The family of this 533-nucleotide part of an RNA from Dracunculus medinensis is "Eukaryotic small subunit ribosomal RNA".
Rfam's curators put it in the seed alignment.
Pairs were carried over by alignment from the consensus structure, which is taken from published work.
RNA sequence: CGGUUAAAAAGCUCGUAGUUGGAAUCCAGCUUGACGACAUGGUCCAUUUAUUGGAUGUGAACUAUGAUCGUAGGCUAAUCUAUGUUGGUUUUCCUUGCGUUACCUUGAUCGGUCGCGUAAGGUGGCUAGCGAGUUUACCUUGAAAAAAUUAGAGUGCUUAAUGCGGGCUUAAAAGCCUGAAUAUUCGUGCAUGGAAUAAUAGAAUAGGAUCUCGGUUCUAUUUUGUUGGUUUUCUGAUCUGAGAUAAUGGUUAAGAGGGACAGACGGGGGCAUUCGUACCGCUGCGUGAGAGGUGAAAUUCUUGGACCGUAGCGAGACGUCCCACUGCGAAAGCAUUUGCCAAGAAUGUCUUCAUUAAUCAAGAACGAAAGUCAGAGGUUCGAAGGCGAUCAGAUACCGCCCUAGUUCUGACCGUAAACGAUACCAACUAGCGUUCCGUCAGUGGUAAUUACGCCUUGACGGGCAGCUUACCGGAAACGAAAGUUUUUCGGUUCCGGGGGAAGUAUGGUUGCAAAGCUGAAACUUAAAGAAAU
Numbered sequence: 001c002g003g004u005u006a007a008a009a010a011g012c013u014c015g016u017a018g019u020u021g022g023a024a025u026c027c028a029g030c031u032u033g034a035c036g037a038c039a040u041g042g043u044c045c046a047u048u049u050a051u052u053g054g055a056u057g058u059g060a061a062c063u064a065u066g067a068u069c070g071u072a073g074g075c076u077a078a079u080c081u082a083u084g085u086u087g088g089u090u091u092u093c094c095u096u097g098c099g100u101u102a103c104c105u106u107g108a109u110c111g112g113u114c115g116c117g118u119a120a121g122g123u124g125g126c127u128a129g130c131g132a133g134u135u136u137a138c139c140u141u142g143a144a145a146a147a148a149u150u151a152g153a154g155u156g157c158u159u160a161a162u163g164c165g166g167g168c169u170u171a172a173a174a175g176c177c178u179g180a181a182u183a184u185u186c187g188u189g190c191a192u193g194g195a196a197u198a199a200u201a202g203a204a205u206a207g208g209a210u211c212u213c214g215g216u217u218c219u220a221u222u223u224u225g226u227u228g229g230u231u232u233u234c235u236g237a238u239c240u241g242a243g244a245u246a247a248u249g250g251u252u253a254a255g256a257g258g259g260a261c262a263g264a265c266g267g268g269g270g271c272a273u274u275c276g277u278a279c280c281g282c283u284g285c286g287u288g289a290g291a292g293g294u295g296a297a298a299u300u301c302u303u304g305g306a307c308c309g310u311a312g313c314g315a316g317a318c319g320u321c322c323c324a325c326u327g328c329g330a331a332a333g334c335a336u337u338u339g340c341c342a343a344g345a346a347u348g349u350c351u352u353c354a355u356u357a358a359u360c361a362a363g364a365a366c367g368a369a370a371g372u373c374a375g376a377g378g379u380u381c382g383a384a385g386g387c388g389a390u391c392a393g394a395u396a397c398c399g400c401c402c403u404a405g406u407u408c409u410g411a412c413c414g415u416a417a418a419c420g421a422u423a424c425c426a427a428c429u430a431g432c433g434u435u436c437c438g439u440c441a442g443u444g445g446u447a448a449u450u451a452c453g454c455c456u457u458g459a460c461g462g463g464c465a466g467c468u469u470a471c472c473g474g475a476a477a478c479g480a481a482a483g484u485u486u487u488u489c490g491g492u493u494c495c496g497g498g499g500g501a502a503g504u505a506u507g508g509u510u511g512c513a514a515a516g517c518u519g520a521a522a523c524u525u526a527a528a529g530a531a532a533u
Stems, first nucleotide, its partner, number of pairs: 001496003009493001011366001013364002018359003257353003261348002265344001269341004275319002280314007290301003327334002371412006381405001385401004423492003426485003430468003435463008444455003472479002498525003507518004